[Rfam]
RNA sequence: GCUGCGCCUAGGACGGCCAUCCGAAAACUCGUGACCCUGACGAGCUGGCGCGGCGCACAUCACAAGGG
Numbered sequence: 001g002c003u004g005c006g007c008c009u010a011g012g013a014c015g016g017c018c019a020u021c022c023g024a025a026a027a028c029u030c031g032u033g034a035c036c037c038u039g040a041c042g043a044g045c046u047g048g049c050g051c052g053g054c055g056c057a058c059a060u061c062a063c064a065a066g067g068g
Stems, first nucleotide, its partner, number of pairs: 001054008011022003028044004035068004
This 68-nucleotide RNA from beta proteobacterium AAP65 belongs to the Rfam family "int-alpA RNA". The organism belongs to Betaproteobacteria, within Bacteria. It scores 50 bits against the family's covariance model. About the family: Acidobacteria (1 example), Planctomycetes (1 example), Proteobacteria.